A member of the RNA family "Small nucleolar RNA SNORD21" from Anolis carolinensis, 96 nucleotides long. Gene Ontology terms of the family: nucleolus and RNA processing. The family's consensus secondary structure was predicted with PFOLD. Rfam classes the family as a C/D-box small nucleolar RNA. The organism belongs to Anolis, within Eukaryota.
RNA sequence: ACUAUGUGAUGAUAUCUCACUGUCUGAACAUACUGUAGUUGGUCCUCGGCAUGUGUAUGAUGCAUCUCACUGUUUCAAGACGGGACUGAUGGUAGC
Numbered sequence: 001a002c003u004a005u006g007u008g009a010u011g012a013u014a015u016c017u018c019a020c021u022g023u024c025u026g027a028a029c030a031u032a033c034u035g036u037a038g039u040u041g042g043u044c045c046u047c048g049g050c051a052u053g054u055g056u057a058u059g060a061u062g063c064a065u066c067u068c069a070c071u072g073u074u075u076c077a078a079g080a081c082g083g084g085a086c087u088g089a090u091g092g093u094a095g096c
Stems, first nucleotide, its partner, number of pairs: 001093004